[Rfam]
RNA sequence: UGCCUGCCGUGACGAUUCCCUAGGACGGUAUAUGAGCGACGGGUCCGCCCGCCGCCUGAUUAUCACCCGAUCUGAGACUAAUGUCUGAGCAAGCA
Number, nucleotide and partner (000 for none) at each position: 001u095002g094003c093004c000005u091006g090007c089008c000009g000010u000011g000012a000013c000014g000015a000016u000017u000018c000019c000020c000021u000022a000023g000024g000025a000026c000027g000028g000029u000030a000031u000032a000033u000034g000035a000036g055037c054038g053039a000040c051041g050042g049043g048044u000045c000046c000047g000048c043049c042050c041051g040052c000053c038054g037055c036056c000057u000058g000059a000060u000061u000062a000063u000064c000065a000066c000067c000068c000069g000070a000071u000072c000073u000074g000075a000076g000077a000078c000079u000080a000081a000082u000083g000084u000085c000086u000087g000088a000089g007090c006091a005092a000093g003094c002095a001
RNA: Small nucleolar RNA Z118/Z121/Z120